This 102-nucleotide RNA sequence from Ureibacillus terrenus belongs to the Rfam family "Purine riboswitch aptamer".
RNA sequence: UUCAAAAUAAUAAAUAUCACUCAUAUAAUUGCGGGAAUAUGGCCUGCGAGUUUCUACCGACUUACCGUAAAUAAGUCGACUAUGAGGGGAUUAUAUAGAUUU
Numbered sequence: 001u002u003c004a005a006a007a008u009a010a011u012a013a014a015u016a017u018c019a020c021u022c023a024u025a026u027a028a029u030u031g032c033g034g035g036a037a038u039a040u041g042g043c044c045u046g047c048g049a050g051u052u053u054c055u056a057c058c059g060a061c062u063u064a065c066c067g068u069a070a071a072u073a074a075g076u077c078g079a080c081u082a083u084g085a086g087g088g089g090a091u092u093a094u095a096u097a098g099a100u101u102u
Base pairs, nucleotide, nucleotide: 018088020086021085022084023083024082025081029049030048031047032046033045034044035043058078059077060076061075062074063073064072

About this RNA:
A reference for the family is Reining et al. (2013), "Three-state mechanism couples ligand and temperature sensing in riboswitches", Nature. The source organism's lineage runs through Bacteria, Bacillati, Bacillota, Caryophanales and Ureibacillus.